The family of this 177-nucleotide sequence from Sporomusaceae bacterium FL31 is "Lysine riboswitch aptamer". Riboswitches are metabolite binding domains within certain messenger RNAs that serve as precision sensors for their corresponding targets. NCBI's taxonomy places the organism under Bacteria, Bacillati, Bacillota, Selenomonadales, Sporomusaceae.
RNA sequence: GUGAUGCAUAGAGGUGCGAAUAUUAUCAGUAUGCACAAGAAGCCGCAAGCGAUGAUUUGUGCAGAAAGGAAUAUUCGCCGAAGCAGAACUUUGCGCAAAGUUUUGCUGGUUUUAUAUCGAAUAGGUAUAAAACUGUCGCCUGAGAAUGCCAGUUUCAGGUGAAGAGCUAUCUCACAC
Numbered sequence: 001g002u003g004a005u006g007c008a009u010a011g012a013g014g015u016g017c018g019a020a021u022a023u024u025a026u027c028a029g030u031a032u033g034c035a036c037a038a039g040a041a042g043c044c045g046c047a048a049g050c051g052a053u054g055a056u057u058u059g060u061g062c063a064g065a066a067a068g069g070a071a072u073a074u075u076c077g078c079c080g081a082a083g084c085a086g087a088a089c090u091u092u093g094c095g096c097a098a099a100g101u102u103u104u105g106c107u108g109g110u111u112u113u114a115u116a117u118c119g120a121a122u123a124g125g126u127a128u129a130a131a132a133c134u135g136u137c138g139c140c141u142g143a144g145a146a147u148g149c150c151a152g153u154u155u156c157a158g159g160u161g162a163a164g165a166g167c168u169a170u171c172u173c174a175c176a177c
Base pairs, nucleotide, nucleotide: 006172008170009169010168011167016078017077018076019075020074021073022072023071024070032063033062034061035060036059037058038057039056082107083106084105085104086103087102088101089100090099091098092097108134109133110132111131112130113129114128115127116126117125118124136162137161138160139159140158141157142156143155144154